About this RNA: Makes More Granules Regulator RNA (mmgR): a 77-nucleotide RNA sequence from Methylobacterium symbioticum. Taxonomically the source falls in Methylobacterium (Bacteria, Pseudomonadati, Pseudomonadota, Hyphomicrobiales). About the family: SuhB later renamed mmgR (makes more granules regulator) was a putative non-coding RNA found multiple times in the Agrobacterium tumefaciens genome and related alpha-proteobacteria. It is annotated as a small RNA. A search with the family's covariance model found it, with a score of 49 bits.
RNA sequence: ACAGACGGCCCAUGGCGGGCGUUUCCUCCCUUAGACUUGGCCCUGCCCCACCGGGUGGGGCCUUUUUCUUGCCAGAU
Number, nucleotide and partner (000 for none) at each position: 001a000002c000003a000004g000005a000006c000007g000008g020009c019010c018011c017012a000013u000014g000015g000016c000017g011018g010019g009020c008021g000022u000023u000024u000025c000026c000027u000028c000029c000030c000031u000032u000033a000034g000035a000036c000037u000038u000039g062040g061041c060042c059043c058044u057045g056046c055047c054048c000049c000050a000051c000052c000053g000054g047055g046056u045057g044058g043059g042060g041061c040062c039063u000064u000065u000066u000067u000068c000069u000070u000071g000072c000073c000074a000075g000076a000077u000